[Rfam]
RNA sequence: ACGAUAUUCCGCUGCUGUUUACCGGUAAGAAUAUCUG
Numbered sequence: 001a002c003g004a005u006a007u008u009c010c011g012c013u014g015c016u017g018u019u020u021a022c023c024g025g026u027a028a029g030a031a032u033a034u035c036u037g
Stems, first nucleotide, its partner, number of pairs: 003035007013027005
RNA: Ribosomal protein L19 leader